[Rfam]
RNA sequence: GGUGACAUUAGUCAUUGAUUUUGUUAAAAUUAACUUUAAGCUGUAUAUCUGAUAGACUGAAUUAUUUUUGGACGCGGGUUCGACUCCCGCCGUCUCCACCACUAGGGCAUUUAUCAGAGUGUUUUAUUGGAGGGGACGUAUUGGCUUCGACAGGGAUAACUAGGAAUAUUGGCAGUCGGUAGGCGAUGACCGUAAAUCAAGCACAUCUAUAAAUGCUAACGAUGAUAAAUUUGCAUUGGCAGCUUAAUUAAACAAGCUCCAGGAGUGUGAUUCACUUGGCAACAGAACGAAUCAAGGCAGCUUCGGCUGCCUUUUUUA
Numbered sequence: 001g002g003u004g005a006c007a008u009u010a011g012u013c014a015u016u017g018a019u020u021u022u023g024u025u026a027a028a029a030u031u032a033a034c035u036u037u038a039a040g041c042u043g044u045a046u047a048u049c050u051g052a053u054a055g056a057c058u059g060a061a062u063u064a065u066u067u068u069u070g071g072a073c074g075c076g077g078g079u080u081c082g083a084c085u086c087c088c089g090c091c092g093u094c095u096c097c098a099c100c101a102c103u104a105g106g107g108c109a110u111u112u113a114u115c116a117g118a119g120u121g122u123u124u125u126a127u128u129g130g131a132g133g134g135g136a137c138g139u140a141u142u143g144g145c146u147u148c149g150a151c152a153g154g155g156a157u158a159a160c161u162a163g164g165a166a167u168a169u170u171g172g173c174a175g176u177c178g179g180u181a182g183g184c185g186a187u188g189a190c191c192g193u194a195a196a197u198c199a200a201g202c203a204c205a206u207c208u209a210u211a212a213a214u215g216c217u218a219a220c221g222a223u224g225a226u227a228a229a230u231u232u233g234c235a236u237u238g239g240c241a242g243c244u245u246a247a248u249u250a251a252a253c254a255a256g257c258u259c260c261a262g263g264a265g266u267g268u269g270a271u272u273c274a275c276u277u278g279g280c281a282a283c284a285g286a287a288c289g290a291a292u293c294a295a296g297g298c299a300g301c302u303u304c305g306g307c308u309g310c311c312u313u314u315u316u317u318a
Stems, first nucleotide, its partner, number of pairs: 040176004049172002052169002057164002064157007074090005091138007177192004263277004268294006295312007
This 318-nucleotide RNA sequence from Taylorella asinigenitalis belongs to the Rfam family "Betaproteobacteria transfer-messenger RNA". On this family, see Mao et al., RNA Biol 2010: "Variations on the tmRNA gene". Bacterial tmRNA, also known as 10Sa RNA or SsrA, is named for its dual tRNA and mRNA-like properties. Taxonomically the source falls in Taylorella asinigenitalis (Bacteria, Pseudomonadota, Burkholderiales, Taylorella). By type it is a non-coding RNA gene.